RNA: Small nucleolar RNA SNORA70
Organism: Piliocolobus tephrosceles
RNA sequence: UUGCAGCCAAUUAAGCCGACUGAGUUCCUUUCCUCAUGGGGGCCCAGUGUGCAAUGGCUGCAAUGGCUGGUAGUGAUGCAGCCUAUUUGUUGUAUGGGUUGCUCUAAGGGACCUUGGAGACAGUC
Numbered sequence: 001u002u003g004c005a006g007c008c009a010a011u012u013a014a015g016c017c018g019a020c021u022g023a024g025u026u027c028c029u030u031u032c033c034u035c036a037u038g039g040g041g042g043c044c045c046a047g048u049g050u051g052c053a054a055u056g057g058c059u060g061c062a063a064u065g066g067c068u069g070g071u072a073g074u075g076a077u078g079c080a081g082c083c084u085a086u087u088u089g090u091u092g093u094a095u096g097g098g099u100u101g102c103u104c105u106a107a108g109g110g111a112c113c114u115u116g117g118a119g120a121c122a123g124u125c
Base pairs, nucleotide, nucleotide: 002053003052004051005050019048020047021046022045025042026041027040028039069113070112071111079101080100081099082098083097084096